[Rfam]
RNA sequence: CGCCGGAAGGGCACGGGUUUCCCGGCAAUGCGUCGUCAGCCGGGAGUAAGCCGGUCCUAAGGCCGACCUUAACCGGGUAGGCCGAAGGGGAAACCGGUUAAGAUUCCGGUGCCUCUCGGGUAGGUGCGGCGACGCAAGCCGGGCUCCCGACGCCUCAGGUAAGGCCGAGCAGGGCCGUAGCCCUGUCUAACCUCCCAAGCCUGGGGAGAGCCGUAAUGGCGAGAACCAGGUGAAUGGAGGGAUGGGGCGGCCUUAAGGCCGCUUCGGCUGGACCCUGGGGCCAGUGAAAAGGGAGCCCGGAACGAUCCCGAGAGACCGUACCUAGAUCCGACACAGGUGCCCCUGGCUGAGAAGGCCAAGGCGUCU
Number, nucleotide and partner (000 for none) at each position: 001c363002g362003c361004c360005g000006g000007a000008a000009g342010g341011g340012c339013a000014c000015g322016g321017g000018u000019u000020u045021c044022c043023c042024g041025g040026c000027a000028a000029u038030g037031c000032g000033u000034c000035g000036u000037c030038a029039g000040c025041c024042g023043g022044g021045a020046g000047u000048a000049a000050g000051c000052c318053g317054g316055u000056c089057c088058u000059a000060a000061g083062g082063c081064c080065g000066a078067c000068c076069u075070u000071a000072a000073c000074c000075g069076g068077g000078u066079a000080g064081g063082c062083c061084g000085a000086a000087g000088g057089g056090g000091a000092a000093a110094c109095c108096g107097g106098u000099u000100a000101a000102g000103a000104u000105u000106c097107c096108g095109g094110u093111g000112c000113c314114u313115c312116u311117c310118g309119g308120g307121u000122a000123g000124g000125u000126g000127c000128g000129g000130c000131g000132a000133c000134g000135c000136a000137a000138g000139c000140c000141g000142g000143g000144c000145u000146c293147c292148c291149g000150a000151c000152g281153c280154c279155u278156c277157a276158g275159g274160u000161a000162a000163g269164g268165c267166c266167g265168a000169g186170c185171a184172g183173g182174g000175c000176c000177g000178u000179a000180g000181c000182c173183c172184u171185g170186u169187c000188u000189a000190a000191c240192c239193u238194c237195c000196c000197a000198a000199g000200c230201c229202u228203g227204g226205g000206g000207a000208g000209a000210g220211c219212c218213g000214u000215a000216a000217u000218g212219g211220c210221g000222a000223g000224a000225a000226c204227c203228a202229g201230g200231u000232g000233a000234a000235u000236g000237g194238a193239g192240g191241g000242a000243u000244g000245g000246g000247g000248c000249g000250g000251c000252c257253u000254u000255a000256a000257g252258g000259c000260c000261g000262c000263u000264u000265c167266g166267g165268c164269u163270g000271g000272a000273c000274c159275c158276u157277g156278g155279g154280g153281c152282c000283a000284g000285u000286g000287a000288a000289a000290a000291g148292g147293g146294a000295g000296c000297c000298c000299g000300g000301a000302a000303c000304g000305a000306u000307c120308c119309c118310g117311a116312g115313a114314g113315a000316c054317c053318g052319u000320a000321c016322c015323u000324a000325g000326a000327u000328c337329c336330g000331a000332c000333a000334c000335a000336g329337g328338u000339g012340c011341c010342c009343c000344u358345g357346g356347c355348u000349g000350a000351g000352a000353a000354g000355g347356c346357c345358a344359a000360g004361g003362c002363g001364u000365c000366u000
RNA: Archaeal large subunit ribosomal RNA, nucleotides 2046 to 2411
Organism: Candidatus Calditenuaceae archaeon HR02